[Rfam]
Shown here is an 87-nucleotide sequence from Chrysochloris asiatica, a member of the family "mir-493 microRNA precursor family".
RNA sequence: CUGGCCUACAGGGCCUUGUACACUGUAGGCUUUCAUUCAUUGUCGCACAUUUGGUGAAGGCCUACUGUGUGCCAGGUCCUCUGCCGG
Numbered sequence: 001c002u003g004g005c006c007u008a009c010a011g012g013g014c015c016u017u018g019u020a021c022a023c024u025g026u027a028g029g030c031u032u033u034c035a036u037u038c039a040u041u042g043u044c045g046c047a048c049a050u051u052u053g054g055u056g057a058a059g060g061c062c063u064a065c066u067g068u069g070u071g072c073c074a075g076g077u078c079c080u081c082u083g084c085c086g087g
Stems, first nucleotide, its partner, number of pairs: 010080007018072006025065013
It scores 83 bits against the family's covariance model. Its family is annotated with RISC complex, cellular response to estrogen stimulus and cellular response to leukemia inhibitory factor in the Gene Ontology.